Small nucleolar RNA snoR31/Z110/Z27: a 102-nucleotide RNA sequence from Miscanthus lutarioriparius. By type it is a C/D-box small nucleolar RNA. A reference for the family is Chen et al. (2003), "The high diversity of snoRNAs in plants: identification and comparative study of 120 snoRNA genes from Oryza sativa", Nucleic Acids Res. Rfam's curators write: This family contains several related snoRNAs including R31, Z27 and Z110.

RNA sequence: GGCAUCAGAGGAUGAAAACUUGAAACAAUCUUAGGACACCUUCUGACACAGCGUAAUUGCAUUGCGCUGUGAAUGAGAAGACAAUUUUUUUCUGGUGACGCU
Numbered sequence: 001g002g003c004a005u006c007a008g009a010g011g012a013u014g015a016a017a018a019c020u021u022g023a024a025a026c027a028a029u030c031u032u033a034g035g036a037c038a039c040c041u042u043c044u045g046a047c048a049c050a051g052c053g054u055a056a057u058u059g060c061a062u063u064g065c066g067c068u069g070u071g072a073a074u075g076a077g078a079a080g081a082c083a084a085u086u087u088u089u090u091u092c093u094g095g096u097g098a099c100g101c102u
Base pairs, nucleotide, nucleotide: 001102002101003100005098006097007096044050045049